RNA sequence: GGAAGGGCUUCGUGCCCGGUGGUGCGGCCGGUCUUCAAAACCGGUUGGGGCCGUCAGGCGGUCCCGGGUGGGUUCGACUCCCGCGCCCUUCC
Dot-bracket structure: ((((((((..((((((....))))))((((((.......)))))).(((((.........)))))...((((.......)))).))))))))
RNA: Selenocysteine transfer RNA
Organism: Thioalkalivibrio paradoxus